[Rfam]
RNA sequence: ACAGGUACUGUAAACAUCCUACACUCUCAGCUGUAGAUGUGAGAAAGCUGGGAGAAGGCUGUUUACUCUCUCUGC
Number, nucleotide and partner (000 for none) at each position: 001a000002c074003a073004g072005g071006u000007a000008c000009u000010g066011u065012a064013a063014a062015c061016a060017u000018c058019c057020u056021a000022c000023a000024c054025u053026c052027u051028c050029a049030g048031c047032u046033g000034u000035a000036g000037a000038u000039g000040u000041g000042a000043g000044a000045a000046a032047g031048c030049u029050g028051g027052g026053a025054g024055a000056a020057g019058g018059c000060u016061g015062u014063u013064u012065a011066c010067u000068c000069u000070c000071u005072c004073u003074g002075c000

mir-30 microRNA precursor family: a 75-nucleotide sequence from Ornithorhynchus anatinus. The family has 175 seed sequences and 3,879 matches in Rfam 15.1. Gene Ontology terms of the family: gene silencing by miRNA and RISC complex. About the family: This family consists of the mammalian microRNA (miRNA) precursor mir-30a. A reference for the family is Lagos-Quintana et al. (2001), "Identification of novel genes coding for small expressed RNAs", Science.